c-di-AMP riboswitch aptamer (ydaO/yuaA leader): a 136-nucleotide sequence from Actinoplanes utahensis. The base pairs follow the family's consensus structure. The organism belongs to Actinoplanes, within Bacteria. It scores 86 bits against the family's covariance model.
[Rfam]
RNA sequence: GGCGAACCACCGCCUAAUCGCUGACGCGAGCCGGGGACCCGAGCAACUGGGGUGAAGUCGUCCUCUCCGGAGGCGGCCGGGCAGACUUCCCGCCCGAACCCGUCAGCUAACCCGGUCGGCGGCUGAGUGGGAAGAA
Numbered sequence: 001g002g003c004g005a006a007c008c009a010c011c012g013c014c015u016a017a018u019c020g021c022u023g024a025c026g027c028g029a030g031c032c033g034g035g036g037a038c039c040c041g042a043g044c045a046a047c048u049g050g051g052g053u054g055a056a057g058u059c060g061u062c063c064u065c066u067c068c069g070g071a072g073g074c075g076g077c078c079g080g081g082c083a084g085a086c087u088u089c090c091c092g093c094c095c096g097a098a099c100c101c102g103u104c105a106g107c108u109a110a111c112c113c114g115g116u117c118g119g120c121g122g123c124u125g126a127g128u129g130g131g132a133a134g135a136a
Stems, first nucleotide, its partner, number of pairs: 011121004018029003030116006040049002050101003058076004079095004